[Rfam]
RNA sequence: AAAAUUAAAUCAGUUAUUGCCUAUAUAUUUACCAUAAUAAGGUUGGUAAGUUUCUACCCGAAACCGUAAAGUUCGGACUAUAAGCAAAAAGAUGAAGGUC
Number, nucleotide and partner (000 for none) at each position: 001a000002a000003a000004a000005u000006u000007a000008a000009a000010u000011c000012a000013g000014u000015u000016a000017u000018u086019g085020c084021c000022u082023a081024u080025a079026u000027a000028u000029u049030u048031a047032c046033c045034a044035u000036a000037a000038u000039a000040a000041g000042g000043u000044u034045g033046g032047u031048a030049a029050g000051u000052u000053u000054c000055u000056a000057c000058c076059c075060g074061a073062a072063a000064c000065c000066g000067u000068a000069a000070a000071g000072u062073u061074c060075g059076g058077a000078c000079u025080a024081u023082a022083a000084g020085c019086a018087a000088a000089a000090a000091g000092a000093u000094g000095a000096a000097g000098g000099u000100c000
Purine riboswitch aptamer: a 100-nucleotide sequence from Apilactobacillus kunkeei. The source organism's lineage runs through Bacteria, Bacillota, Lactobacillales, Lactobacillaceae and Apilactobacillus. A search with the family's covariance model found it, with a score of 76 bits. Its family is annotated with purine nucleobase biosynthetic process in the Gene Ontology.